[Rfam]
RNA sequence: GCUCCGACGGGUUGGCACGCUGCCUGCUAGAGAGGUUUCGACACAUUCACAGGCCCCUGCUCAACGGCGAGCGGGCGCCCUUCCCGAUCGAACGGGACCUGGACAAAGGCGUCCUGCUGGCAACAGCGGGACGCC
Numbered sequence: 001g002c003u004c005c006g007a008c009g010g011g012u013u014g015g016c017a018c019g020c021u022g023c024c025u026g027c028u029a030g031a032g033a034g035g036u037u038u039c040g041a042c043a044c045a046u047u048c049a050c051a052g053g054c055c056c057c058u059g060c061u062c063a064a065c066g067g068c069g070a071g072c073g074g075g076c077g078c079c080c081u082u083c084c085c086g087a088u089c090g091a092a093c094g095g096g097a098c099c100u101g102g103a104c105a106a107a108g109g110c111g112u113c114c115u116g117c118u119g120g121c122a123a124c125a126g127c128g129g130g131a132c133g134c135c
Stems, first nucleotide, its partner, number of pairs: 012106003015027003052079003056075001058073002061070002082097005108135007116127004
RNA: Pseudomonas sRNA P11
Organism: Pseudomonas sp. FeS53a